[Rfam]
RNA sequence: UUCUGCCAAUGAUGAGUUGCAACUUUAUUGCCUACAUUGUCUGAAAGUCUGUGAUAAGAAGUGCAAUUUCUGAGGCACAA
Numbered sequence: 001u002u003c004u005g006c007c008a009a010u011g012a013u014g015a016g017u018u019g020c021a022a023c024u025u026u027a028u029u030g031c032c033u034a035c036a037u038u039g040u041c042u043g044a045a046a047g048u049c050u051g052u053g054a055u056a057a058g059a060a061g062u063g064c065a066a067u068u069u070c071u072g073a074g075g076c077a078c079a080a
Stems, first nucleotide, its partner, number of pairs: 001080002004077004
This 80-nucleotide sequence from Zea mays belongs to the Rfam family "Small nucleolar RNA SNORD34". Rfam links the family to the GO terms nucleolus and RNA processing. snoRNA U34 is found in intron 5 of the ribosomal protein L13a gene in humans. The literature on the family includes a 2002 paper in Mol Cell Biol by Galardi et al., "Purified box C/D snoRNPs are able to reproduce site-specific 2'-O-methylation of target RNA in vitro".